RNA: Streptomyces-metH RNA
Organism: Streptomyces tsukubensis
RNA sequence: CUGUCCGCACCGUGGGACGCCUGAGUCGCCUCGCGGCCCUGCACGGUUAAGCUGGCCCGAUGCGCCUCCCGCCGGAGGCGCAAAGCCGACAGCCGUCGCACUCCAGGGAGCAGAUCCAUG
Numbered sequence: 001c002u003g004u005c006c007g008c009a010c011c012g013u014g015g016g017a018c019g020c021c022u023g024a025g026u027c028g029c030c031u032c033g034c035g036g037c038c039c040u041g042c043a044c045g046g047u048u049a050a051g052c053u054g055g056c057c058c059g060a061u062g063c064g065c066c067u068c069c070c071g072c073c074g075g076a077g078g079c080g081c082a083a084a085g086c087c088g089a090c091a092g093c094c095g096u097c098g099c100a101c102u103c104c105a106g107g108g109a110g111c112a113g114a115u116c117c118a119u120g
Stems, first nucleotide, its partner, number of pairs: 061082004066077004085099002088097003